[Rfam]
RNA sequence: CUUACAGAGUUCUUUGGCAUUCUGUCCACCUCCCCCCUCUCUCUGUGUGUCUGUGGCUCAAUGGAUGGAGGUGGGCAUACUGCCAACAGAGCUCUGUUGG
Number, nucleotide and partner (000 for none) at each position: 001c000002u000003u000004a000005c000006a000007g000008a000009g000010u000011u090012c000013u000014u086015u085016g084017g083018c082019a081020u000021u000022c000023u077024g076025u075026c074027c073028a072029c071030c070031u069032c068033c067034c000035c000036c000037c000038u000039c000040u000041c000042u000043c000044u000045g000046u000047g000048u000049g000050u000051c000052u000053g000054u000055g000056g000057c000058u000059c000060a000061a000062u000063g000064g000065a000066u000067g033068g032069a031070g030071g029072u028073g027074g026075g025076c024077a023078u000079a000080c000081u019082g018083c017084c016085a015086a014087c000088a000089g000090a011091g000092c000093u000094c000095u000096g000097u000098u000099g000100g000